The record is an 87-nucleotide RNA from Oryza sativa, which matches "Small nucleolar RNA Z102/R77" in Rfam. For this family Rfam cites "The high diversity of snoRNAs in plants: identification and comparative study of 120 snoRNA genes from Oryza sativa" (Chen et al., Nucleic Acids Res, 2003). The source organism's lineage runs through Eukaryota, Viridiplantae, commelinids, Poales and Oryza sativa. Rfam classes the family as a C/D-box small nucleolar RNA. It is one of the family's seed sequences.

Nucleotides: 087
Stems, first nucleotide, its partner, number of pairs: 002086004038059001042057004
Number, partner (000 for none) and nucleotide at each position: 001000g002086g003085a004084u005083g006000a007000u008000a009000u010000g011000a012000u013000g014000a015000u016000c017000a018000a019000a020000u021000u022000g023000u024000u025000u026000c027000c028000c029000u030000a031000u032000u033000g034000g035000u036000u037000u038059g039000a040000u041000u042057g043056g044055c045054c046000g047000c048000u049000a050000u051000g052000a053000u054045g055044g056043c057042c058000u059038c060000a061000a062000a063000u064000u065000g066000u067000a068000u069000u070000a071000g072000c073000u074000c075000u076000a077000u078000c079000u080000g081000a082000u083005c084004a085003u086002c087000u
Its family is annotated with RNA processing and nucleolus in the Gene Ontology.